[Rfam]
The family of this 179-nucleotide sequence from Oceanicoccus sagamiensis is "6S / SsrS RNA". The source organism's lineage runs through Bacteria, Pseudomonadota, Gammaproteobacteria, Cellvibrionales and Oceanicoccus. By type it is a non-coding RNA gene. The match comes from Rfam's covariance-model search (97 bits). E. coli 6S RNA was the first non coding RNA to be sequenced, but its function was unknown until recently. It consists of 184 nucleotides that fold into an extended hairpin structure with a large single-stranded internal bulge. The 6S RNA specifically associates with RNA polymerase holoenzyme containing the sigma70 specificity factor. This interaction represses expression from a sigma70-dependent promoter during stationary phase. 6S RNA homologs have recently been identified in most bacterial genomes.
RNA sequence: CGCUCCCUGGAAUAUUUGCCAGACAGCUUAGACCCCUGAGCCGAUGCGCAUUACCCCCGGAGGUUUUAGUGCUAUGGGCGUGCAUGCCUGCUUGACGGGAAGCCCGAUAUAGCGCGGAAACCACCACCUUGAACCGUUGGGUUCAAGGGCCAUGUUGUCAGCGGUAUUGUGGGGAGCCC
Numbered sequence: 001c002g003c004u005c006c007c008u009g010g011a012a013u014a015u016u017u018g019c020c021a022g023a024c025a026g027c028u029u030a031g032a033c034c035c036c037u038g039a040g041c042c043g044a045u046g047c048g049c050a051u052u053a054c055c056c057c058c059g060g061a062g063g064u065u066u067u068a069g070u071g072c073u074a075u076g077g078g079c080g081u082g083c084a085u086g087c088c089u090g091c092u093u094g095a096c097g098g099g100a101a102g103c104c105c106g107a108u109a110u111a112g113c114g115c116g117g118a119a120a121c122c123a124c125c126a127c128c129u130u131g132a133a134c135c136g137u138u139g140g141g142u143u144c145a146a147g148g149g150c151c152a153u154g155u156u157g158u159c160a161g162c163g164g165u166a167u168u169g170u171g172g173g174g175a176g177c178c179c
Base pairs, nucleotide, nucleotide: 002177003176004175005174006173007172008171009170011168012167013166014165015164017163018162019161033149034148035147037145038144039143040142041141042140059125060124063121064120065119066118067117070114071113072112073111074110075109076108082103083102087099088098089097090096